[Rfam]
RNA sequence: AGGGAAUGAUGUUCUCCCUAGGACUUUGUCCUGAACUGCCGAAGGGCUGAUGGCGUCUGCGUUUUU
Numbered sequence: 001a002g003g004g005a006a007u008g009a010u011g012u013u014c015u016c017c018c019u020a021g022g023a024c025u026u027u028g029u030c031c032u033g034a035a036c037u038g039c040c041g042a043a044g045g046g047c048u049g050a051u052g053g054c055g056u057c058u059g060c061g062u063u064u065u066u
Stems, first nucleotide, its partner, number of pairs: 002018004008057006038047003